Record summary: The record is a 54-nucleotide RNA from Oncorhynchus tshawytscha, which matches "UnaL2 LINE 3' element" in Rfam. A search with the family's covariance model found it, with a score of 59 bits. Pairs were carried over by alignment from the consensus structure, which is taken from published work. Rfam 15.1 lists 493,311 matches to the family in 99 species. It is annotated as a cis-regulatory element. NCBI's taxonomy places the organism under Eukaryota, Eumetazoa, Actinopterygii, Salmonidae, Oncorhynchus.
RNA sequence: CUCAAUUGUGCCUGUAAGUCGCUCUGGAUAAGAGCGUCUGCUAAAUUAUGUAAA
Number, nucleotide and partner (000 for none) at each position: 001c000002u000003c000004a000005a000006u000007u000008g000009u000010g000011c000012c000013u043014g041015u040016a039017a000018g000019u000020c036021g035022c034023u033024c032025u031026g000027g000028a000029u000030a000031a025032g024033a023034g022035c021036g020037u000038c000039u016040g015041c014042u000043a013044a000045a000046u000047u000048a000049u000050g000051u000052a000053a000054a000